Shown here is an 84-nucleotide RNA sequence from Virgibacillus indicus, a member of the family "c-di-GMP-I riboswitch aptamer". GEMM was predicted in a large-scale screen for bacterial structured RNA regulatory elements.
RNA sequence: CUCAGUAAAAGGCAAACUUAUUGAAAAAUAAGGACGCAAAGUCACAGGUCUAACGCUUUUGGCUAAGAUGGCUGGAUUGUCUGG
Numbered sequence: 001c002u003c004a005g006u007a008a009a010a011g012g013c014a015a016a017c018u019u020a021u022u023g024a025a026a027a028a029u030a031a032g033g034a035c036g037c038a039a040a041g042u043c044a045c046a047g048g049u050c051u052a053a054c055g056c057u058u059u060u061g062g063c064u065a066a067g068a069u070g071g072c073u074g075g076a077u078u079g080u081c082u083g084g
Stems, first nucleotide, its partner, number of pairs: 012037002017032006040078004045074003048069003055063003
Record summary
Pairs were carried over by alignment from the consensus structure, which is taken from published work. A search with the family's covariance model found it, with a score of 74 bits.